[Rfam]
RNA sequence: GCCGCUUUAGCUCAGUUGGUAGAGCACAUCAUUCGUAAUGAUGGGGUCACAGGUUCGAGUCCUGUAAGCGGCA
Numbered sequence: 001g002c003c004g005c006u007u008u009a010g011c012u013c014a015g016u017u018g019g020u021a022g023a024g025c026a027c028a029u030c031a032u033u034c035g036u037a038a039u040g041a042u043g044g045g046g047u048c049a050c051a052g053g054u055u056c057g058a059g060u061c062c063u064g065u066a067a068g069c070g071g072c073a
Stems, first nucleotide, its partner, number of pairs: 001072007010025004027043005049065005

Notes
This 73-nucleotide RNA from Sphingopyxis lindanitolerans belongs to the Rfam family "tRNA". The base pairs follow the family's consensus structure, which is taken from published work. The match comes from Rfam's covariance-model search (74 bits).